[Rfam]
RNA sequence: CCUCGGGUUGAAACCCGAGGCUGACAAAUUUCACCGCUCCGCGGUU
Numbered sequence: 001c002c003u004c005g006g007g008u009u010g011a012a013a014c015c016c017g018a019g020g021c022u023g024a025c026a027a028a029u030u031u032c033a034c035c036g037c038u039c040c041g042c043g044g045u046u
Stems, first nucleotide, its partner, number of pairs: 001020008033045005

Background
This 46-nucleotide RNA sequence from Rhodopirellula baltica belongs to the Rfam family "Acido-Lenti-1 RNA". The source organism's lineage runs through Bacteria, Pseudomonadati, Planctomycetota, Pirellulales and Rhodopirellula baltica. It is one of the family's seed sequences. The base pairs follow the family's consensus structure, which is taken from published work.